[Rfam]
RNA sequence: ACCUUAUCAAGAGCGGUGGAGGGAAAGGCCCUAUGAAGCCCAGCAACCAGUAUUUCAUUAUACAUGGUGCUAAGUCCAACAGCAUUAGCUGAAAGAUAAGUA
Number, nucleotide and partner (000 for none) at each position: 001a000002c000003c100004u099005u098006a097007u096008c095009a000010a000011g000012a000013g041014c000015g040016g039017u038018g000019g000020a000021g031022g030023g029024a000025a000026a000027g077028g076029c023030c022031c021032u000033a000034u000035g000036a000037a000038g017039c016040c015041c013042a071043g070044c069045a068046a000047c067048c066049a000050g063051u062052a061053u060054u000055u000056c000057a000058u000059u000060a053061u052062a051063c050064a000065u000066g048067g047068u045069g044070c043071u042072a000073a000074g000075u094076c028077c027078a000079a000080c091081a090082g089083c088084a000085u000086u000087a000088g083089c082090u081091g080092a000093a000094a075095g008096a007097u006098a005099a004100g003101u000102a000
The record is a 102-nucleotide RNA sequence from Clostridium manihotivorum, which matches "SAM riboswitch aptamer (S box leader)" in Rfam. The base pairs follow the family's consensus structure, which is taken from published work. Rfam links the family to the GO term regulation of gene expression. It scores 82 bits against the family's covariance model.